[Rfam]
RNA sequence: GCAUAAUGAUGAUGCAAAAUUUAUUCCGAAAAUUCAUGAAAGGAAUACCAACCUCCUACUCAUUCUGA
Numbered sequence: 001g002c003a004u005a006a007u008g009a010u011g012a013u014g015c016a017a018a019a020u021u022u023a024u025u026c027c028g029a030a031a032a033u034u035c036a037u038g039a040a041a042g043g044a045a046u047a048c049c050a051a052c053c054u055c056c057u058a059c060u061c062a063u064u065c066u067g068a
Base pairs, nucleotide, nucleotide: 003063004062006060024043027038